Small nucleolar RNA SNORD2: a 72-nucleotide sequence from Plectus sambesii. On this family, see Zhou et al., Gene 2004: "Identification of a novel box C/D snoRNA from mouse nucleolar cDNA library". The base pairs follow the family's consensus structure, which was predicted with WAR. By type it is a C/D-box small nucleolar RNA. Lineage of the source: Eukaryota > Nematoda > Plectoidea > Plectidae > Plectus.
Nucleotides: 072
Stems, first nucleotide, its partner, number of pairs: 001072006
Number, partner (000 for none) and nucleotide at each position: 001072g002071u003070u004069c005068g006067c007000g008000a009000u010000g011000a012000a013000a014000u015000c016000a017000u018000a019000c020000c021000a022000u023000c024000u025000u026000u027000c028000g029000g030000g031000g032000c033000u034000g035000a036000a037000u038000g039000u040000g041000a042000g043000u044000g045000u046000u047000g048000a049000u050000a051000g052000c053000c054000u055000u056000u057000a058000c059000u060000u061000u062000g063000c064000u065000g066000a067006g068005c069004g070003a071002g072001c